[Rfam]
RNA sequence: GAUUCCGUAGCUCAGCUGGUAGAGCAAUACACUUUUAAUGUAUGGGUCCUGGGUUCGAGCCCCAGCGGGAUCA
Numbered sequence: 001g002a003u004u005c006c007g008u009a010g011c012u013c014a015g016c017u018g019g020u021a022g023a024g025c026a027a028u029a030c031a032c033u034u035u036u037a038a039u040g041u042a043u044g045g046g047u048c049c050u051g052g053g054u055u056c057g058a059g060c061c062c063c064a065g066c067g068g069g070a071u072c073a
Stems, first nucleotide, its partner, number of pairs: 001072007010025004027043005049065005
A member of the RNA family "tRNA" from Belliella baltica, 73 nucleotides long. Rfam links the family to the GO term triplet codon-amino acid adaptor activity. The family's RNA type in Rfam is transfer RNA. It scores 69 bits against the family's covariance model. The organism belongs to Belliella baltica, within Bacteria.